[Rfam]
RNA sequence: GUCGCGGUGACGCGGGGUUUGAAGGAAGCGUGGAGCAAAGUCGCGGCCUGACGCACAGGAAUCGGAUCGUAGGCAGUACCGGUGGGACGAGCCGCCACGAAACGGCGAAGUCCUCCAUCCAUCGAAGGCCGGUGCUGUAAAUCCGGCGGGCGUGCGACGAAGGUUGUCAAAC
Number, nucleotide and partner (000 for none) at each position: 001g000002u015003c014004g013005c012006g011007g000008u000009g000010a000011c006012g005013c004014g003015g002016g000017g000018u000019u000020u000021g000022a000023a000024g000025g000026a000027a000028g172029c000030g000031u169032g168033g000034a000035g164036c163037a000038a000039a000040g158041u157042c156043g155044c154045g153046g151047c150048c149049u148050g147051a000052c000053g000054c000055a000056c000057a000058g000059g000060a000061a000062u146063c145064g144065g143066a142067u141068c000069g000070u000071a000072g000073g138074c137075a136076g000077u134078a133079c132080c131081g130082g129083u128084g000085g113086g112087a111088c110089g000090a000091g106092c105093c104094g103095c000096c000097a000098c000099g000100a000101a000102a000103c094104g093105g092106c091107g000108a000109a000110g088111u087112c086113c085114u000115c000116c000117a000118u000119c000120c000121a000122u000123c000124g000125a000126a000127g000128g083129c082130c081131g080132g079133u078134g077135c000136u075137g074138u073139a000140a000141a067142u066143c065144c064145g063146g062147c050148g049149g048150g047151c046152g000153u045154g044155c043156g042157a041158c040159g000160a000161a000162g000163g036164u035165u000166g000167u000168c032169a031170a000171a000172c028
RNA: Group II catalytic intron D1-D4-3